[Rfam]
Rfam assigns this 63-nucleotide sequence from Mastacembelus armatus to the family "mir-7552 microRNA precursor family". The base pairs follow the family's consensus structure, which was predicted with RNAalifold. NCBI's taxonomy places the organism under Eukaryota, Eumetazoa, Euteleosteomorpha, Eurypterygia, Mastacembelus.
RNA sequence: UUACAAUUAAAGGAUAUUUCUUGCGAAUGAAAGUUGAUCAGAAAUGUCUUUUAAUUGUUCGGC
Numbered sequence: 001u002u003a004c005a006a007u008u009a010a011a012g013g014a015u016a017u018u019u020c021u022u023g024c025g026a027a028u029g030a031a032a033g034u035u036g037a038u039c040a041g042a043a044a045u046g047u048c049u050u051u052u053a054a055u056u057g058u059u060c061g062g063c
Base pairs, nucleotide, nucleotide: 003058004057005056006055007054008053009052010051012049013048014047015046016045017044018043019042020041021040025034